Shown here is a 94-nucleotide RNA sequence from Durio zibethinus, a member of the family "MIR535 microRNA precursor family". A search with the family's covariance model found it, with a score of 65 bits. Its family is annotated with miRNA-mediated post-transcriptional gene silencing and RISC complex in the Gene Ontology. Rfam 15.1 lists 544 matches to the family in 108 species. The source organism's lineage runs through Eukaryota, Viridiplantae, Streptophytina, malvids and Durio.
RNA sequence: UAGAUCAUAUGACAAUAACAGAGAGCACGCCUGUAUAUAUCCACGCACUUGCAUGAAUGGCAACGAGCGUGCUCUCUCUCAUUGUCAAUUUAUC
Number, nucleotide and partner (000 for none) at each position: 001u000002a000003g000004a000005u000006c000007a000008u000009a000010u087011g086012a085013c084014a083015a000016u081017a000018a000019c000020a077021g076022a000023g074024a000025g072026c071027a070028c069029g068030c067031c000032u065033g064034u063035a000036u000037a000038u000039a000040u000041c000042c000043a000044c000045g000046c000047a000048c000049u000050u000051g000052c000053a000054u000055g000056a000057a000058u000059g000060g000061c000062a000063a034064c033065g032066a000067g030068c029069g028070u027071g026072c025073u000074c023075u000076c021077u020078c000079u000080c000081a016082u000083u014084g013085u012086c011087a010088a000089u000090u000091u000092a000093u000094c000